[Rfam]
RNA: Mason-Pfizer monkey virus packaging signal
Organism: Sciurus vulgaris
RNA sequence: UAGCGCCCAAUGGUGUGGCUUUGGAUACGGGGGAAUUCGCGAGGGAAGAGGCGUUUAAUGGUUCGGCGAACAAAGUAGAAAUCAGUUCAAGAAAGAUCGCCACGGGAGUCUGCUGCGCCAUUCUUAAAGGUACAGUAGCGCCUAAGUAUGGGACAAGAAUUAAGUAAGCAUAAAGUUUUUGUUAAGCAAUUAAAAGAAGCUUUAAAGACACGGGGAGAAAAGGUUAAGAGUAAUGAUCUUUUUAAGUUUUUUGACCUUAUUAAGGACAUCUGUUCGU
Numbered sequence: 001u002a003g004c005g006c007c008c009a010a011u012g013g014u015g016u017g018g019c020u021u022u023g024g025a026u027a028c029g030g031g032g033g034a035a036u037u038c039g040c041g042a043g044g045g046a047a048g049a050g051g052c053g054u055u056u057a058a059u060g061g062u063u064c065g066g067c068g069a070a071c072a073a074a075g076u077a078g079a080a081a082u083c084a085g086u087u088c089a090a091g092a093a094a095g096a097u098c099g100c101c102a103c104g105g106g107a108g109u110c111u112g113c114u115g116c117g118c119c120a121u122u123c124u125u126a127a128a129g130g131u132a133c134a135g136u137a138g139c140g141c142c143u144a145a146g147u148a149u150g151g152g153a154c155a156a157g158a159a160u161u162a163a164g165u166a167a168g169c170a171u172a173a174a175g176u177u178u179u180u181g182u183u184a185a186g187c188a189a190u191u192a193a194a195a196g197a198a199g200c201u202u203u204a205a206a207g208a209c210a211c212g213g214g215g216a217g218a219a220a221a222g223g224u225u226a227a228g229a230g231u232a233a234u235g236a237u238c239u240u241u242u243u244a245a246g247u248u249u250u251u252u253g254a255c256c257u258u259a260u261u262a263a264g265g266a267c268a269u270c271u272g273u274u275c276g277u
Stems, first nucleotide, its partner, number of pairs: 006033003013028003038050001040048001087130002091125001096121001101117001103115003136156001138154001141152004161204003164200002211253007221239006262277001264275004